[Rfam]
RNA sequence: CGUAUGCUUCCGGGGACGGGGAGUCCCAAGGAGGGACUGAGAGGUCGCCAUCGAGAGGCGACGACCCGAUGAACCUGAUCCAGAUCAUGCUGGCGUAGGGAGGAAGCCGAAGCGGCGCG
Numbered sequence: 001c002g003u004a005u006g007c008u009u010c011c012g013g014g015g016a017c018g019g020g021g022a023g024u025c026c027c028a029a030g031g032a033g034g035g036a037c038u039g040a041g042a043g044g045u046c047g048c049c050a051u052c053g054a055g056a057g058g059c060g061a062c063g064a065c066c067c068g069a070u071g072a073a074c075c076u077g078a079u080c081c082a083g084a085u086c087a088u089g090c091u092g093g094c095g096u097a098g099g100g101a102g103g104a105a106g107c108c109g110a111a112g113c114g115g116c117g118c119g
Base pairs, nucleotide, nucleotide: 006107007106008105009104010103011068012067013066014065023037024036025035026034027033044062045061046060047059048058074099075098076097077096080093081092082091083090
Source information:
TPP riboswitch aptamer (THI element): a 119-nucleotide RNA from Verrucomicrobium sp. GAS474. The match comes from Rfam's covariance-model search (69 bits). Taxonomically the source falls in Verrucomicrobium (Bacteria, Pseudomonadati, Verrucomicrobiota, Verrucomicrobiaceae).